[Rfam]
The family of this 141-nucleotide RNA sequence from Loxodonta africana is "Small nucleolar RNA SNORA75". A reference for the family is Ganot et al. (1997), "The family of box ACA small nucleolar RNAs is defined by an evolutionarily conserved secondary structure and ubiquitous sequence elements essential for RNA accumulation", Genes Dev. About the family: U23 belongs to the H/ACA class of snoRNAs. snoRNAs bind a number of proteins (including dyskerin, Gar1p and Nop10p in the case of the H/ACA class) to form snoRNP complexes. This class are thought to guide the sites of modification of uridines to pseudouridines by forming direct base pairing interactions with substrate RNAs. Targets include ribosomal and spliceosomal RNAs as well as the Trypanosoma spliced leader RNA (SL RNA) as possibly other, still unknown cellular RNAs. The family's RNA type in Rfam is H/ACA-box small nucleolar RNA.
RNA sequence: GUCUUCCUCCAUGAGCUCUUUCUGUCCAUUGGGUGGCAGUUUAUGGAUCGCACGAGAAGAAGAGCCAAUUCACAGAGCUAGCGUUCUUAGUUUACCUUCUGUCUUCACAGAGGUAAAGUUCUGCUGUUCUGUGAGACAUUU
Numbered sequence: 001g002u003c004u005u006c007c008u009c010c011a012u013g014a015g016c017u018c019u020u021u022c023u024g025u026c027c028a029u030u031g032g033g034u035g036g037c038a039g040u041u042u043a044u045g046g047a048u049c050g051c052a053c054g055a056g057a058a059g060a061a062g063a064g065c066c067a068a069u070u071c072a073c074a075g076a077g078c079u080a081g082c083g084u085u086c087u088u089a090g091u092u093u094a095c096c097u098u099c100u101g102u103c104u105u106c107a108c109a110g111a112g113g114u115a116a117a118g119u120u121c122u123g124c125u126g127u128u129c130u131g132u133g134a135g136a137c138a139u140u141u
Stems, first nucleotide, its partner, number of pairs: 003059003007056003015051002017047002022039005070134006096113006